[Rfam]
RNA sequence: AUCUUUGUGCUAGGUUGGGUCAAUGACGUAGCUCAUAAGGUUCGAACUGAGGCGCGUUGAUUGUUAGUUGAAAACUAUUUUCAAACCCCCUCUUAGUCCUCGAGCUUAAAUUGAGUUCUCGAAAUUUUUUCAGUUUAAGUUUUU
Numbered sequence: 001a002u003c004u005u006u007g008u009g010c011u012a013g014g015u016u017g018g019g020u021c022a023a024u025g026a027c028g029u030a031g032c033u034c035a036u037a038a039g040g041u042u043c044g045a046a047c048u049g050a051g052g053c054g055c056g057u058u059g060a061u062u063g064u065u066a067g068u069u070g071a072a073a074a075c076u077a078u079u080u081u082c083a084a085a086c087c088c089c090c091u092c093u094u095a096g097u098c099c100u101c102g103a104g105c106u107u108a109a110a111u112u113g114a115g116u117u118c119u120c121g122a123a124a125u126u127u128u129u130u131c132a133g134u135u136u137a138a139g140u141u142u143u144u
Stems, first nucleotide, its partner, number of pairs: 025058005031053003039048003091122002095119002099115005137144002
RNA: U4 spliceosomal RNA
Organism: Hibiscus syriacus